The record is a 77-nucleotide RNA from Haemonchus placei, which matches "SmY spliceosomal RNA" in Rfam. For this family Rfam cites "A novel family of C. elegans snRNPs contains proteins associated with trans-splicing" (MacMorris et al., RNA, 2007). The source organism's lineage runs through Eukaryota, Eumetazoa, Protostomia, Chromadorea and Haemonchus. Rfam 15.1 lists 408 matches to the family in 67 species.
Nucleotides: 077
Base pairs, nucleotide, nucleotide: 022038023037024036026034027033028032057076058075059074060073061072062071063070064069
Number, partner (000 for none) and nucleotide at each position: 001000u002000a003000g004000a005000a006000a007000c008000u009000c010000u011000a012000g013000u014000u015000u016000g017000c018000u019000g020000c021000a022038g023037g024036g025000c026034c027033u028032u029000u030000a031000u032028a033027a034026g035000a036024c037023c038022c039000a040000u041000a042000g043000u044000a045000c046000a047000a048000u049000u050000u051000u052000u053000g054000u055000a056000g057076a058075c059074c060073u061072u062071u063070g064069c065000u066000g067000g068000a069064g070063u071062a072061a073060a074059g075058g076057u077000a